[Rfam]
RNA sequence: UAAGAACUGGAUAUGAUGACUGAAAUAAGCUCCAUAUCAACGAGAAUUUCGAUGGGAUUAUGUGCAGUCAAUGUCCAGUAAUUA
Numbered sequence: 001u002a003a004g005a006a007c008u009g010g011a012u013a014u015g016a017u018g019a020c021u022g023a024a025a026u027a028a029g030c031u032c033c034a035u036a037u038c039a040a041c042g043a044g045a046a047u048u049u050c051g052a053u054g055g056g057a058u059u060a061u062g063u064g065c066a067g068u069c070a071a072u073g074u075c076c077a078g079u080a081a082u083u084a
Base pairs, nucleotide, nucleotide: 006079007078008077009076010075011074012073013072014071017070018069019068020067021066022065025061026060027059028058031056032055033054034053035052041051042050043049
This 84-nucleotide sequence from Pongo pygmaeus belongs to the Rfam family "mir-4791 microRNA precursor family".
Rfam links the family to the GO terms RISC complex and miRNA-mediated post-transcriptional gene silencing.
NCBI's taxonomy places the organism under Eukaryota, Teleostomi, Dipnotetrapodomorpha, Hominoidea, Pongo.
The family's consensus secondary structure was predicted with RNAalifold.